[Rfam]
RNA sequence: AUUGCCAGAACCUUGGCGAUGUAAGGGAUCAGCGGCAGGUUCAGAAUCAGCAGGAUCAGGUUGCCGAUAUACAUCGAGAUGAUGACCGACCAGAAGAUCUGAGGCUGGUCCACCAUCAGGCGCGGGCC
Numbered sequence: 001a002u003u004g005c006c007a008g009a010a011c012c013u014u015g016g017c018g019a020u021g022u023a024a025g026g027g028a029u030c031a032g033c034g035g036c037a038g039g040u041u042c043a044g045a046a047u048c049a050g051c052a053g054g055a056u057c058a059g060g061u062u063g064c065c066g067a068u069a070u071a072c073a074u075c076g077a078g079a080u081g082a083u084g085a086c087c088g089a090c091c092a093g094a095a096g097a098u099c100u101g102a103g104g105c106u107g108g109u110c111c112a113c114c115a116u117c118a119g120g121c122g123c124g125g126g127c128c
Stems, first nucleotide, its partner, number of pairs: 003018006026128002029125002033122002036119001038114003043109001046106001048104001051101004056097002061093003072084004

Rfam assigns this 128-nucleotide RNA from Pseudoprimorskyibacter insulae to the family "Ruegeria cis8 sRNA".
The match comes from Rfam's covariance-model search (117 bits).
The family has 2 seed sequences and 138 matches in Rfam 15.1.
Taxonomically the source falls in Pseudoprimorskyibacter (Bacteria, Pseudomonadota, Rhodobacterales, Paracoccaceae).